About this RNA: A member of the RNA family "Streptomyces RNA 6106" from Streptomyces luteolifulvus, 84 nucleotides long. By type it is a small RNA. The organism belongs to Streptomyces, within Bacteria. It scores 89 bits against the family's covariance model. About the family: Identified by deep sequencing of transcriptome at the end of exponential growth phase.
[Rfam]
RNA sequence: ACGCCGUCCCGAGCGGCGUUCGGGGCCUCGAACAGGCCUGGGAGCGGGGGUGGUGCCGUGUCGGCGCAGCACCACCCCCGCUCC
Number, nucleotide and partner (000 for none) at each position: 001a019002c018003g017004c016005c015006g014007u013008c000009c000010c000011g000012a000013g007014c006015g005016g004017c003018g002019u001020u042021c041022g000023g039024g038025g037026c036027c035028u034029c000030g000031a000032a000033c000034a028035g027036g026037c025038c024039u023040g000041g021042g020043a000044g081045c080046g079047g078048g077049g076050g075051u074052g073053g072054u071055g070056c069057c000058g067059u066060g065061u000062c000063g000064g000065c060066g059067c058068a000069g056070c055071a054072c053073c052074a051075c050076c049077c048078c047079c046080g045081c044082u000083c000084c000